A member of the RNA family "mir-927 microRNA precursor family" from Cimex lectularius, 81 nucleotides long. For this family Rfam cites "Evolutionary flux of canonical microRNAs and mirtrons in Drosophila" (Berezikov et al., Nat Genet, 2010). Gene Ontology terms of the family: RISC complex and miRNA-mediated post-transcriptional gene silencing.

[Rfam]
Nucleotides: 081
Stems, first nucleotide, its partner, number of pairs: 011074002014072008023063001025061001028058007036050002
Number, partner (000 for none) and nucleotide at each position: 001000u002000a003000u004000g005000u006000g007000u008000g009000g010000g011074c012073c013000u014072g015071u016070u017069u018068u019067a020066g021065a022000a023063u024000a025061c026000c027000u028058a029057c030056g031055c032054u033053u034052u035000a036050c037049c038000c039000u040000g041000c042000u043000a044000u045000g046000u047000g048000c049037g050036g051000c052034a053033a054032a055031g056030c057029g058028u059000c060000u061025g062000a063023a064000u065021u066020c067019u068018a069017a070016a071015a072014u073012g074011g075000g076000c077000u078000u079000g080000c081000a